[Rfam]
RNA sequence: GGAAGCACUUACGUAACUGGUGUACGUACUGGUCUUCAACACCAAGUUGUGGGUGUAAAAACUCAUGGGUGGGUUCGAUUCCCAUGUGCUUCC
Numbered sequence: 001g002g003a004a005g006c007a008c009u010u011a012c013g014u015a016a017c018u019g020g021u022g023u024a025c026g027u028a029c030u031g032g033u034c035u036u037c038a039a040c041a042c043c044a045a046g047u048u049g050u051g052g053g054u055g056u057a058a059a060a061a062c063u064c065a066u067g068g069g070u071g072g073g074u075u076c077g078a079u080u081c082c083c084a085u086g087u088g089c090u091u092c093c
Base pairs, nucleotide, nucleotide: 001093002092003091004090005089006088007087008086011027012026013025014024015023017022028047029046030044031043032042033041049066050065051064052063053062070084071083072082073081
The record is a 93-nucleotide RNA from a Mycoplasmatota bacterium, which matches "Selenocysteine transfer RNA" in Rfam.
Rfam 15.1 lists 4,211 matches to the family in 3,344 species.
It scores 65 bits against the family's covariance model.